[Rfam]
RNA sequence: AAAAUUGAAUACGUUGUACCGUAGACAGCAGGUGCGAGACAUUCGCUUAAUUUCCCGCCGAGGUCUUUAAGAACAAAUACGAUCAUAAUUGAUAAAGAUUUGUUAUACAAAGCCUUCAUGUCUGCAUGAAGGCUUUUCUAUGUCCGGUA
Numbered sequence: 001a002a003a004a005u006u007g008a009a010u011a012c013g014u015u016g017u018a019c020c021g022u023a024g025a026c027a028g029c030a031g032g033u034g035c036g037a038g039a040c041a042u043u044c045g046c047u048u049a050a051u052u053u054c055c056c057g058c059c060g061a062g063g064u065c066u067u068u069a070a071g072a073a074c075a076a077a078u079a080c081g082a083u084c085a086u087a088a089u090u091g092a093u094a095a096a097g098a099u100u101u102g103u104u105a106u107a108c109a110a111a112g113c114c115u116u117c118a119u120g121u122c123u124g125c126a127u128g129a130a131g132g133c134u135u136u137u138c139u140a141u142g143u144c145c146g147g148u149a
Stems, first nucleotide, its partner, number of pairs: 028058002031055002034046003111134010
Ribosomal protein L10 leader: a 149-nucleotide RNA sequence from Lentibacillus populi. Rfam classes the family as a cis-regulatory leader. It scores 77 bits against the family's covariance model. Taxonomically the source falls in Lentibacillus (Bacteria, Bacillota, Bacilli, Caryophanales). The family's consensus secondary structure was predicted with CMfinder.